[Rfam]
Shown here is a 133-nucleotide RNA from Neorhizobium sp. SOG26, a member of the family "Alphaproteobacterial sRNA ar35".
For this family Rfam cites "A survey of sRNA families in alpha-proteobacteria" (del Val et al., RNA Biol, 2012).
Rfam classes the family as a small RNA.
RNA sequence: GUCGGGCAAGAUGUCGGCCUGCAAUCUCCAGGCCGCUUGAUCCAAUCUCUGCUUUCCGUUGACCACGGAUGUACUGGCACCGCUGAAAGCAUGAGACGACGUGAGGUCAGGCAAUAGCCUGGCCUUUUUUCUU
Numbered sequence: 001g002u003c004g005g006g007c008a009a010g011a012u013g014u015c016g017g018c019c020u021g022c023a024a025u026c027u028c029c030a031g032g033c034c035g036c037u038u039g040a041u042c043c044a045a046u047c048u049c050u051g052c053u054u055u056c057c058g059u060u061g062a063c064c065a066c067g068g069a070u071g072u073a074c075u076g077g078c079a080c081c082g083c084u085g086a087a088a089g090c091a092u093g094a095g096a097c098g099a100c101g102u103g104a105g106g107u108c109a110g111g112c113a114a115u116a117g118c119c120u121g122g123c124c125u126u127u128u129u130u131c132u133u
Stems, first nucleotide, its partner, number of pairs: 004043003007039003016034005047095003051090004057082001060079002063077003096132001098130002101128001103126010